The record is a 45-nucleotide RNA sequence from Sneathiella litorea, which matches "Guanidine-II riboswitch aptamer (mini-ykkC)" in Rfam. On this family, see Huang et al., Cell Chem Biol 2017: "The Structure of the Guanidine-II Riboswitch". The base pairs follow the family's consensus structure, which is taken from published work. The source organism's lineage runs through Bacteria, Pseudomonadota, Sneathiellales, Sneathiellaceae and Sneathiella. About the family: Simpler in structure and has fewer highly conserved nucleotide positions than the ykkC-yxkD leader. Despite this each of its two stem-loop structures directly bind free guanidine. Therefore, mini-ykkC RNA motif represents a distinct class of guanidine-sensing RNAs. Its crystal structure was also determined.

RNA sequence: AUUGGGGGACGACCCCCACAUCAGAGCCGUUUCCGGGACGACCCG
Numbered sequence: 001a002u003u004g005g006g007g008g009a010c011g012a013c014c015c016c017c018a019c020a021u022c023a024g025a026g027c028c029g030u031u032u033c034c035g036g037g038a039c040g041a042c043c044c045g
Base pairs, nucleotide, nucleotide: 003018004017005016006015007014008013034045035044036043037042